[Rfam]
RNA: Small nucleolar RNA SNORA5
RNA sequence: UGCAGCUGUGUCAAAUUCAGUCCUCAUCCAACCCAUGCUGGGGACUGGCCAAACAGCUGCCACAGCAAUGGCUGUAGCUCAUGAGCCCCACUGUCCGUCUCGACCCUGGGGAUAAAUAAAUGCUACAGACACUG
Numbered sequence: 001u002g003c004a005g006c007u008g009u010g011u012c013a014a015a016u017u018c019a020g021u022c023c024u025c026a027u028c029c030a031a032c033c034c035a036u037g038c039u040g041g042g043g044a045c046u047g048g049c050c051a052a053a054c055a056g057c058u059g060c061c062a063c064a065g066c067a068a069u070g071g072c073u074g075u076a077g078c079u080c081a082u083g084a085g086c087c088c089c090a091c092u093g094u095c096c097g098u099c100u101c102g103a104c105c106c107u108g109g110g111g112a113u114a115a116a117u118a119a120a121u122g123c124u125a126c127a128g129a130c131a132c133u134g
Stems, first nucleotide, its partner, number of pairs: 002060004018047009028037001074126005079120001086111005